RNA sequence: UCAAUUCGUUGCGACGCACUCCUCCUCCCAGCGUCGCCUCGAUAUGGUUGACGAUACUCCUCCUCCCAAUCGUCAAUCAACCCAAUGACGCCCACCGGAUCCUCCUCCCCCGGUGGGCGUUUUGC
Number, nucleotide and partner (000 for none) at each position: 001u000002c000003a000004a000005u000006u000007c041008g040009u000010u000011g037012c036013g035014a034015c033016g032017c031018a000019c000020u000021c000022c000023u000024c000025c000026u000027c000028c000029c000030a000031g017032c016033g015034u014035c013036g012037c011038c000039u000040c008041g007042a000043u000044a000045u000046g078047g077048u076049u075050g074051a073052c072053g071054a070055u069056a000057c000058u000059c000060c000061u000062c000063c000064u000065c000066c000067c000068a000069a055070u054071c053072g052073u051074c050075a049076a048077u047078c046079a000080a000081c000082c000083c000084a000085a000086u000087g000088a120089c119090g118091c117092c116093c115094a114095c113096c112097g111098g110099a000100u000101c000102c000103u000104c000105c000106u000107c000108c000109c000110c098111c097112g096113g095114u094115g093116g092117g091118c090119g089120u088121u000122u000123u000124g000125c000
RNA: Alphaproteobacterial ar14
Organism: Martelella alba